[Rfam]
RNA sequence: GGAAGCGUGCCUGAACAAAAAGGAUCACUAUGAUAAAGUGAACAUAGAGGUAUAACAACCCUCUCACUUCCU
Numbered sequence: 001g002g003a004a005g006c007g008u009g010c011c012u013g014a015a016c017a018a019a020a021a022g023g024a025u026c027a028c029u030a031u032g033a034u035a036a037a038g039u040g041a042a043c044a045u046a047g048a049g050g051u052a053u054a055a056c057a058a059c060c061c062u063c064u065c066a067c068u069u070c071c072u
Stems, first nucleotide, its partner, number of pairs: 001071005007065001010023003025041005046064005
Rfam assigns this 72-nucleotide RNA to the family "tRNA". The family's consensus secondary structure is taken from published work. Gene Ontology term of the family: triplet codon-amino acid adaptor activity. A reference for the family is Hou (1993), "The tertiary structure of tRNA and the development of the genetic code", Trends Biochem Sci. Transfer RNA (tRNA) molecules are approximately 80 nucleotides in length.